Shown here is a 75-nucleotide RNA from Myotis brandtii, a member of the family "mir-9223 microRNA precursor family". Pairs were carried over by alignment from the consensus structure, which was predicted with RNAalifold.
RNA sequence: GGCAGUUCUCAGGUGAUGCACCCCGGAAUCGGGCUCCUUCCUAUCUGGUUCCGGGUGCGUCACCUCAGAACCAUA
Numbered sequence: 001g002g003c004a005g006u007u008c009u010c011a012g013g014u015g016a017u018g019c020a021c022c023c024c025g026g027a028a029u030c031g032g033g034c035u036c037c038u039u040c041c042u043a044u045c046u047g048g049u050u051c052c053g054g055g056u057g058c059g060u061c062a063c064c065u066c067a068g069a070a071c072c073a074u075a
Base pairs, nucleotide, nucleotide: 002074005071006070007069008068009067011065012064013063014062015061016060017059019057020056021055022054023053025052026051027050028049029048030047031046032045033044